MIR6274 microRNA precursor family: a 106-nucleotide RNA sequence from Prunus persica. Pairs were carried over by alignment from the consensus structure, which was predicted with RNAalifold.
RNA sequence: GUAUAACAUUGUUUUGCUAUUUCCGACUAAUAACACAAUGACACAUGAAAAAAUUAUCCUAUGUAUCACUAUGUUAUUAGUCGGAAAUAGCAAAAAGAUUUUGUUU
Numbered sequence: 001g002u003a004u005a006a007c008a009u010u011g012u013u014u015u016g017c018u019a020u021u022u023c024c025g026a027c028u029a030a031u032a033a034c035a036c037a038a039u040g041a042c043a044c045a046u047g048a049a050a051a052a053a054u055u056a057u058c059c060u061a062u063g064u065a066u067c068a069c070u071a072u073g074u075u076a077u078u079a080g081u082c083g084g085a086a087a088u089a090g091c092a093a094a095a096a097g098a099u100u101u102u103g104u105u106u
Stems, first nucleotide, its partner, number of pairs: 003104003012095009022085014037070001039068003043064005050057001